The record is a 150-nucleotide RNA sequence from Kalanchoe fedtschenkoi, which matches "U4 spliceosomal RNA" in Rfam. The literature on the family includes a 1997 paper in Nucleic Acids Res by Zwieb, "The uRNA database". Rfam describes the family as follows. U4 small nuclear RNA (U4 snRNA) is a component of the major U2-dependent spliceosome. The match comes from Rfam's covariance-model search (88 bits). The family is grouped with related families in Rfam's "U4 clan". NCBI's taxonomy places the organism under Eukaryota, Embryophyta, Mesangiospermae, Saxifragales, Kalanchoe.
RNA sequence: AUCAUUACGCUUGGGGCAAUGAUGCAGCUAGUGAGGUUUCUAACCGAGGCGCAUCAAUUGCUGGUUGAAAACUAUUUCCAAACCCCCUCAUUUUGGCCUGGGCUUGCCCCUGUCUAUUGAGAAUUUCUAGAAGCGCUCCCUAUAUGAGAG
Numbered sequence: 001a002u003c004a005u006u007a008c009g010c011u012u013g014g015g016g017c018a019a020u021g022a023u024g025c026a027g028c029u030a031g032u033g034a035g036g037u038u039u040c041u042a043a044c045c046g047a048g049g050c051g052c053a054u055c056a057a058u059u060g061c062u063g064g065u066u067g068a069a070a071a072c073u074a075u076u077u078c079c080a081a082a083c084c085c086c087c088u089c090a091u092u093u094u095g096g097c098c099u100g101g102g103c104u105u106g107c108c109c110c111u112g113u114c115u116a117u118u119g120a121g122a123a124u125u126u127c128u129a130g131a132a133g134c135g136c137u138c139c140c141u142a143u144a145u146g147a148g149a150g
Stems, first nucleotide, its partner, number of pairs: 021055005027050003035045003087121003094116003098112001100110001101108002136150002